[Rfam]
Shown here is a 66-nucleotide RNA from Swingsia samuiensis, a member of the family "Glycine riboswitch aptamer".
RNA sequence: UUCUGGAGAGAGGCACAUGAAAGUGUGUCCGCCGAUGGGAUAAUGAUCUCAGGCAAAAGGACAGGA
Dot-bracket structure: (((((......((((..........)))).(((((..((.......)))).))).......)))))
Numbered sequence: 001u002u003c004u005g006g007a008g009a010g011a012g013g014c015a016c017a018u019g020a021a022a023g024u025g026u027g028u029c030c031g032c033c034g035a036u037g038g039g040a041u042a043a044u045g046a047u048c049u050c051a052g053g054c055a056a057a058a059g060g061a062c063a064g065g066a
Stems, first nucleotide, its partner, number of pairs: 001066005012029004031054003034050002038048002